A member of the RNA family "MIR2655 microRNA precursor family" from Trifolium subterraneum, 252 nucleotides long. Pairs were carried over by alignment from the consensus structure, which was predicted with RNAalifold. Gene Ontology terms of the family: RISC complex and miRNA-mediated post-transcriptional gene silencing. The source organism's lineage runs through Eukaryota, Spermatophyta, Gunneridae, Trifolieae and Trifolium. Rfam 15.1 lists 892 matches to the family in 5 species.
RNA sequence: CCCUUAUCUUUUAAAAGUUUCAAGUUGGUCCCUUAUCUUUAUUUUAGGUUUCAAGUUGGUCCCUUCCGUCAAUUUUUUAACUAUUUCCGUUAAAUUUGGACACGUGUCAUCUGUCCAAGUGUGCCACGUGUCCAAAUUAGUUUGCCACAUGUCCAAAUUUAACGGAAAUAGUUAAAAAAUUGACGGAAGGGACCAACUUGAAACCUAAAAUAAAGAUAAGGGACCAACUUGAAACUUUUAAAAGAUAAGGGA
Dot-bracket structure: .(((((((..............(((.(((.(((((((((((((.(((.............................................................................................................................................................))).))))))))))))).))).)))..............)))))))..
Numbered sequence: 001c002c003c004u005u006a007u008c009u010u011u012u013a014a015a016a017g018u019u020u021c022a023a024g025u026u027g028g029u030c031c032c033u034u035a036u037c038u039u040u041a042u043u044u045u046a047g048g049u050u051u052c053a054a055g056u057u058g059g060u061c062c063c064u065u066c067c068g069u070c071a072a073u074u075u076u077u078u079a080a081c082u083a084u085u086u087c088c089g090u091u092a093a094a095u096u097u098g099g100a101c102a103c104g105u106g107u108c109a110u111c112u113g114u115c116c117a118a119g120u121g122u123g124c125c126a127c128g129u130g131u132c133c134a135a136a137u138u139a140g141u142u143u144g145c146c147a148c149a150u151g152u153c154c155a156a157a158u159u160u161a162a163c164g165g166a167a168a169u170a171g172u173u174a175a176a177a178a179a180u181u182g183a184c185g186g187a188a189g190g191g192a193c194c195a196a197c198u199u200g201a202a203a204c205c206u207a208a209a210a211u212a213a214a215g216a217u218a219a220g221g222g223a224c225c226a227a228c229u230u231g232a233a234a235c236u237u238u239u240a241a242a243a244g245a246u247a248a249g250g251g252a
Stems, first nucleotide, its partner, number of pairs: 002250007023229003027225003031221013045207003